[Rfam]
RNA sequence: AUACUUACCUGGCAGGGGAGAUACCAUGAUCACUAAGAUGGUUCUCCCAGGGCUAGCUCAUCCAUUGCACUGCGUGUUGACCCCGCGAUUUCCCCAAACGCGGGAAACCCCGACUGCAUAAUUUGUAGGUGGGGGAUCAUGUCACGCUUCCCCG
Numbered sequence: 001a002u003a004c005u006u007a008c009c010u011g012g013c014a015g016g017g018g019a020g021a022u023a024c025c026a027u028g029a030u031c032a033c034u035a036a037g038a039u040g041g042u043u044c045u046c047c048c049a050g051g052g053c054u055a056g057c058u059c060a061u062c063c064a065u066u067g068c069a070c071u072g073c074g075u076g077u078u079g080a081c082c083c084c085g086c087g088a089u090u091u092c093c094c095c096a097a098a099c100g101c102g103g104g105a106a107a108c109c110c111c112g113a114c115u116g117c118a119u120a121a122u123u124u125g126u127a128g129g130u131g132g133g134g135g136a137u138c139a140u141g142u143c144a145c146g147c148u149u150c151c152c153c154g
Stems, first nucleotide, its partner, number of pairs: 012117004016048006023042005050083003054080001063074001086112002090106002093103002132153005138146001140144001